[Rfam]
RNA sequence: CUCUGUUAAAAAUAACAGGGCAAAAGGAG
Dot-bracket structure: ((((((((....)))))))).........

The family of this 29-nucleotide RNA from Monodon monoceros is "L31-Firmicutes ribosomal protein leader".
The literature on the family includes a 2020 paper in BMC Microbiol by Eckert and Weinberg, "Discovery of 20 novel ribosomal leader candidates in bacteria and archaea".
The match comes from Rfam's covariance-model search (37 bits).
By type it is a cis-regulatory leader.
Clan: Ribosomal Protein L31 Leader clan.